[Rfam]
RNA sequence: ACCGUCCUCGUCAGGGGGUUGGGAGCUUGCUCAAGGAGGGUUUACUGAGGGCAAGACUGCUAACACCUGCAAUUAAUACUUAAACGCAUCACUGUACCCGGAGGGUACAGGAUAGGUGCAAUUUUUGGAAAU
Numbered sequence: 001a002c003c004g005u006c007c008u009c010g011u012c013a014g015g016g017g018g019u020u021g022g023g024a025g026c027u028u029g030c031u032c033a034a035g036g037a038g039g040g041u042u043u044a045c046u047g048a049g050g051g052c053a054a055g056a057c058u059g060c061u062a063a064c065a066c067c068u069g070c071a072a073u074u075a076a077u078a079c080u081u082a083a084a085c086g087c088a089u090c091a092c093u094g095u096a097c098c099c100g101g102a103g104g105g106u107a108c109a110g111g112a113u114a115g116g117u118g119c120a121a122u123u124u125u126u127g128g129a130a131a132u
Stems, first nucleotide, its partner, number of pairs: 006018004021060001023058001026055007038046002086119005092110008
U4atac minor spliceosomal RNA: a 132-nucleotide sequence from Octopus sinensis.
The match comes from Rfam's covariance-model search (84 bits).
U4atac is an essential component of the minor U12-type spliceosome complex which is required for removal of the rarer class of eukaryotic introns (AT-AC, U12-type).
The literature on the family includes a 2005 paper in RNA by Lorkovic et al., "Evolutionary conservation of minor U12-type spliceosome between plants and humans".
The family's RNA type in Rfam is spliceosomal small nuclear RNA.
Lineage of the source: Eukaryota > Spiralia > Lophotrochozoa > Octopodiformes > Octopus.
Rfam links the family to the GO terms U4atac snRNP, spliceosomal tri-snRNP complex assembly and mRNA 5'-splice site recognition.
Its Rfam clan is "U4 clan".